[Rfam]
RNA sequence: GCUGAUGCUGGUGGUGAUGCCGAUGGUGCGAGCUGGACGGUGGGUGCUACGGCAUCAUUGUCGUCGUCAUCGUCAUCAUC
Numbered sequence: 001g002c003u004g005a006u007g008c009u010g011g012u013g014g015u016g017a018u019g020c021c022g023a024u025g026g027u028g029c030g031a032g033c034u035g036g037a038c039g040g041u042g043g044g045u046g047c048u049a050c051g052g053c054a055u056c057a058u059u060g061u062c063g064u065c066g067u068c069a070u071c072g073u074c075a076u077c078a079u080c
Base pairs, nucleotide, nucleotide: 001077003075004074005073006072007071009069010068011067012066013065014064015063016062017061021060022059023058024057025056026055027054028053029051030050031048032047033046
mir-598 microRNA precursor family: an 80-nucleotide RNA from Bos taurus. The family's consensus secondary structure was predicted with RNAalifold. The match comes from Rfam's covariance-model search (84 bits).